[Rfam]
RNA: Group II catalytic intron D1-D4-7
RNA sequence: CCGAGUGUUUUGCCACUCGUACCCUACUAAACUGUAUAAGUACAGUAAUGUCUUAUGCAAGCGUUUAGGACAAUGAACCCGCCAAAGGAGAAGUUCGGUCUGUGAAGAGGACGAUGCUAUUAGUGUCAAGUUGGCACGGGGG
Numbered sequence: 001c002c003g004a005g006u007g008u009u010u011u012g013c014c015a016c017u018c019g020u021a022c023c024c025u026a027c028u029a030a031a032c033u034g035u036a037u038a039a040g041u042a043c044a045g046u047a048a049u050g051u052c053u054u055a056u057g058c059a060a061g062c063g064u065u066u067a068g069g070a071c072a073a074u075g076a077a078c079c080c081g082c083c084a085a086a087g088g089a090g091a092a093g094u095u096c097g098g099u100c101u102g103u104g105a106a107g108a109g110g111a112c113g114a115u116g117c118u119a120u121u122a123g124u125g126u127c128a129a130g131u132u133g134g135c136a137c138g139g140g141g142g
Base pairs, nucleotide, nucleotide: 002019003018004017005016006015007014028067029066030065031064032063033059034058035057036056037055038054039053040052042051043050044049082088083087093112094111095110096109100107101106116135117134118133119132121130